FMN riboswitch aptamer (RFN element): a 157-nucleotide RNA from Porphyromonas endodontalis. NCBI's taxonomy places the organism under Bacteria, Pseudomonadati, Bacteroidia, Bacteroidales, Porphyromonas endodontalis. It scores 79 bits against the family's covariance model.
RNA sequence: GUGAUUCUAAAGAGGAGCGGUGUAAAUCCCUACCGGUGGUGAUAGUCCACAACUCCCCUUUUUGGGAGCAUCUACAUAGAAGAGGCUCUUUAUAGGGGGGACUGAUAUGGUGUAAUUCCAUAAUCGACGGUUAUAGUCCGGAUGGUAUUUGAAUCUU
Numbered sequence: 001g002u003g004a005u006u007c008u009a010a011a012g013a014g015g016a017g018c019g020g021u022g023u024a025a026a027u028c029c030c031u032a033c034c035g036g037u038g039g040u041g042a043u044a045g046u047c048c049a050c051a052a053c054u055c056c057c058c059u060u061u062u063u064g065g066g067a068g069c070a071u072c073u074a075c076a077u078a079g080a081a082g083a084g085g086c087u088c089u090u091u092a093u094a095g096g097g098g099g100g101a102c103u104g105a106u107a108u109g110g111u112g113u114a115a116u117u118c119c120a121u122a123a124u125c126g127a128c129g130g131u132u133a134u135a136g137u138c139c140g141g142a143u144g145g146u147a148u149u150u151g152a153a154u155c156u157u
Stems, first nucleotide, its partner, number of pairs: 003155005009149002017030001019029002032137002034126002036050004045124002054101008106122005128140003